[Rfam]
RNA sequence: CGACGCAUCGCGGGAGAGCCGGCAGCCAACAUCGCCGGCACCGAAGGAGCAAGCCUCCCCGCCAAUCUCUCAGGUCGCAUCACCGCGAUGACCAG
Number, nucleotide and partner (000 for none) at each position: 001c000002g000003a000004c000005g000006c090007a089008u088009c087010g086011c085012g084013g083014g000015a000016g000017a000018g000019c038020c037021g036022g035023c000024a000025g000026c000027c000028a000029a000030c000031a000032u000033c000034g000035c022036c021037g020038g019039c000040a075041c074042c073043g071044a070045a000046g000047g069048a068049g067050c000051a000052a000053g062054c061055c000056u000057c000058c000059c000060c000061g054062c053063c000064a000065a000066u000067c049068u048069c047070u044071c043072a000073g042074g041075u040076c000077g000078c000079a000080u000081c000082a000083c013084c012085g011086c010087g009088a008089u007090g006091a000092c000093c000094a000095g000

The family of this 95-nucleotide sequence from Agromyces sp. NDB4Y10 is "Glycine riboswitch aptamer". The pairing is the family consensus, mapped onto this sequence. Lineage of the source: Bacteria > Bacillati > Actinomycetota > Micrococcales > Agromyces.